[Rfam]
RNA: M-box riboswitch aptamer (ykoK leader)
Nucleotides: 161
Base pairs, nucleotide, nucleotide: 005157006156007155008154009153010152011145013097015140016139017138020134021133022132026129027128028127029126030125031124032123039115040114041113042112043111046074048072049071055066056065057064058063082106083105084104088100089099090098
Number, partner (000 for none) and nucleotide at each position: 001000g002000a003000a004000u005157a006156a007155a008154u009153a010152c011145g012000g013097u014000a015140g016139g017138u018000g019000a020134g021133g022132c023000u024000a025000c026129c027128g028127c029126a030125g031124g032123g033000a034000u035000a036000c037000g038000g039115a040114u041113u042112g043111c044000u045000a046074c047000c048072g049071c050000g051000a052000a053000a054000u055066a056065g057064u058063g059000g060000a061000g062000a063058c064057a065056c066055u067000a068000u069000a070000a071049g072048u073000u074046g075000g076000u077000c078000a079000g080000c081000a082106g083105a084104u085000c086000a087000u088100g089099u090098c091000g092000a093000u094000a095000c096000a097013a098090g099089g100088c101000a102000u103000a104084a105083u106082c107000u108000a109000a110000u111043g112042c113041a114040a115039u116000u117000u118000c119000a120000c121000c122000g123032c124031c125030c126029u127028g128027c129026g130000a131000u132022g133021c134020u135000a136000a137000a138017a139016c140015u141000u142000g143000a144000a145011c146000g147000g148000a149000u150000a151000u152010g153009u154008a155007u156006u157005u158000u159000a160000u161000g